[Rfam]
RNA sequence: CCUAUUGAGUGUUCUAUCAAAUGAUAGUAGAUGUAAAGCCUUUGCUUUACUUCGAGGUCAGACACGUUGAUGUAGGAA
Numbered sequence: 001c002c003u004a005u006u007g008a009g010u011g012u013u014c015u016a017u018c019a020a021a022u023g024a025u026a027g028u029a030g031a032u033g034u035a036a037a038g039c040c041u042u043u044g045c046u047u048u049a050c051u052u053c054g055a056g057g058u059c060a061g062a063c064a065c066g067u068u069g070a071u072g073u074a075g076g077a078a
Stems, first nucleotide, its partner, number of pairs: 001076005009065005022060003030053002033050007
RAGATH-18 RNA: a 78-nucleotide sequence.